Shown here is a 107-nucleotide sequence from Wenjunlia tyrosinilytica, a member of the family "Glycine riboswitch aptamer". The organism belongs to Wenjunlia, within Bacteria. A search with the family's covariance model found it, with a score of 62 bits. Rfam's curators write: This family represents the bacterial glycine riboswitch. The family is grouped with related families in Rfam's "Glycine riboswitch clan".
[Rfam]
RNA sequence: CGAGGCCGCGCGGGAGAGUCCCUGCCAGGGCAUACCCCGUUGGAGCAGGGCGCCGAAGGAGCAAGUCCUCCCCGGAAUCUCUCAGGCACAGCUACCGCGCGGACGAG
Numbered sequence: 001c002g003a004g005g006c007c008g009c010g011c012g013g014g015a016g017a018g019u020c021c022c023u024g025c026c027a028g029g030g031c032a033u034a035c036c037c038c039g040u041u042g043g044a045g046c047a048g049g050g051c052g053c054c055g056a057a058g059g060a061g062c063a064a065g066u067c068c069u070c071c072c073c074g075g076a077a078u079c080u081c082u083c084a085g086g087c088a089c090a091g092c093u094a095c096c097g098c099g100c101g102g103a104c105g106a107g
Stems, first nucleotide, its partner, number of pairs: 006102008020050006052087003055083002059081003